[Rfam]
RNA sequence: UUGCAUUCAAUGAAGAGGACCUAGUAGUUAAUGUCUCCCUGUUUCAGAGAACCGGUGGUGCUGUGAACCGGUACAAAGACAGAAAUGAAUUACCACCUUGGAGAAAAUCUAUGGAAACAUAGAACGUAGAGAGGCGUUAACUCUAUUUUGAGCUGGGAAAACAUUUUUUCCAAUCAGGGUGGUACCGCGAUCAAUUCGUCCCUUUA
Numbered sequence: 001u002u003g004c005a006u007u008c009a010a011u012g013a014a015g016a017g018g019a020c021c022u023a024g025u026a027g028u029u030a031a032u033g034u035c036u037c038c039c040u041g042u043u044u045c046a047g048a049g050a051a052c053c054g055g056u057g058g059u060g061c062u063g064u065g066a067a068c069c070g071g072u073a074c075a076a077a078g079a080c081a082g083a084a085a086u087g088a089a090u091u092a093c094c095a096c097c098u099u100g101g102a103g104a105a106a107a108u109c110u111a112u113g114g115a116a117a118c119a120u121a122g123a124a125c126g127u128a129g130a131g132a133g134g135c136g137u138u139a140a141c142u143c144u145a146u147u148u149u150g151a152g153c154u155g156g157g158a159a160a161a162c163a164u165u166u167u168u169u170c171c172a173a174u175c176a177g178g179g180u181g182g183u184a185c186c187g188c189g190a191u192c193a194a195u196u197c198g199u200c201c202c203u204u205u206a
Base pairs, nucleotide, nucleotide: 007104008103015099016098017097018096027086028085029084032081040075041074042073051072052071053070054069055068056067108123109122110121111120112119113118125136126135127134155171156170157169158168159167160166161165176203177202178201179200187199188198189197190196
Dot-bracket structure: ......((......((((........(((..(.......(((........((((((..........))))))))).....)..))).........))))...))...((((((....)))))).(((......)))..................(((((((...)))))))....((((.......((((.....))))))))...

T-box leader: a 206-nucleotide sequence from Salipaludibacillus neizhouensis. The source organism's lineage runs through Bacteria, Bacillota, Caryophanales, Bacillaceae and Salipaludibacillus. Rfam describes the family as follows. Uncharged tRNA acts as the effector for transcription antitermination of genes in the T-box leader family. It is annotated as a cis-regulatory leader.